[Rfam]
RNA sequence: UUUAGAAUUCAAGAUAUGGGCUGAAUACUGAACAAUGUCUAGACUGCAGGACAGAUUCAGACAUUGAGGAAAGUUUUAUAAUUUGGACUUGAAAAUAUCCUUUCUAAAUCUUGGACUCCACAUGAAAGUUGUAGGCCUAUGUCUUACCAAAUCUGUU
Numbered sequence: 001u002u003u004a005g006a007a008u009u010c011a012a013g014a015u016a017u018g019g020g021c022u023g024a025a026u027a028c029u030g031a032a033c034a035a036u037g038u039c040u041a042g043a044c045u046g047c048a049g050g051a052c053a054g055a056u057u058c059a060g061a062c063a064u065u066g067a068g069g070a071a072a073g074u075u076u077u078a079u080a081a082u083u084u085g086g087a088c089u090u091g092a093a094a095a096u097a098u099c100c101u102u103u104c105u106a107a108a109u110c111u112u113g114g115a116c117u118c119c120a121c122a123u124g125a126a127a128g129u130u131g132u133a134g135g136c137c138u139a140u141g142u143c144u145u146a147c148c149a150a151a152u153c154u155g156u157u
Base pairs, nucleotide, nucleotide: 003155004154005153006152009146011145012144013143014142015141016140017139018138019137020136021134022133023132025130027129028128029127035123036122037121042118043117045115048112049111050110051109054105060099063098064097073088074087075086
RNA: MIR2912 microRNA precursor family